[Rfam]
RNA sequence: GGUCAUGCUAUUCCACAGCUUUCUUGAACUUUCUUGUAAUGCUUCUUUUAAUCUCUCUAUAUAUUGAUAGGCAGCACCUUGGAAGCUCAAGAAAGCUGUGGGAGAACAUGGCAU
Dot-bracket structure: ..(((((.....(((.((((((.((((.(((((...............................................))))).)))).)))))).))).....)))))...